[Rfam]
The family of this 183-nucleotide RNA from Lacticaseibacillus thailandensis is "Lysine riboswitch aptamer". A reference for the family is Mandal et al. (2003), "Riboswitches Control Fundamental Biochemical Pathways in Bacillus subtilis and Other Bacteria", Cell. Gene Ontology term of the family: lysine biosynthetic process.
RNA sequence: AGAAAAGAUAGAGGUUGCGGUUGCCAUGAGUAGCGCGUCCAAGUUGAUUACACUCAACGGUGCGGGCGCAUGAAAGGGAAGACCGCCGAAAUCAACUGGGCAAGUGUAAGCCUGGUUGGUUGGGCCACCGGUGAAUAACCGCUGGACUGUCGCAGUUAACGGCUGCGGAGCGCUAUCGUAAAU
Numbered sequence: 001a002g003a004a005a006a007g008a009u010a011g012a013g014g015u016u017g018c019g020g021u022u023g024c025c026a027u028g029a030g031u032a033g034c035g036c037g038u039c040c041a042a043g044u045u046g047a048u049u050a051c052a053c054u055c056a057a058c059g060g061u062g063c064g065g066g067c068g069c070a071u072g073a074a075a076g077g078g079a080a081g082a083c084c085g086c087c088g089a090a091a092u093c094a095a096c097u098g099g100g101c102a103a104g105u106g107u108a109a110g111c112c113u114g115g116u117u118g119g120u121u122g123g124g125c126c127a128c129c130g131g132u133g134a135a136u137a138a139c140c141g142c143u144g145g146a147c148u149g150u151c152g153c154a155g156u157u158a159a160c161g162g163c164u165g166c167g168g169a170g171c172g173c174u175a176u177c178g179u180a181a182a183u
Base pairs, nucleotide, nucleotide: 007177008176009175010174011173017086018085019084020083021082022081025078033071035069036068037067038066039065040064090121091120092119093118094117095116096115097114098113099112100111101110122148123147125145126144127143129141130140131139132138150168151167152166153165154164155163156162
Dot-bracket structure: ......(((((.....((((((..(.......(.((((((.......................)))))).)......)..))))))...((((((((((((........))))))))))))((.(((.((((.....)))).))).)).(((((((.....)))))))....)))))......
About this RNA:
The source organism's lineage runs through Bacteria, Bacillota, Lactobacillales, Lactobacillaceae and Lacticaseibacillus thailandensis. About the family: Riboswitches are metabolite binding domains within certain messenger RNAs that serve as precision sensors for their corresponding targets. Allosteric rearrangement of mRNA structure is mediated by ligand binding, and this results in modulation of gene expression. This family includes riboswitches that sense lysine in a number of genes involved in lysine metabolism, including lysC. It scores 116 bits against the family's covariance model.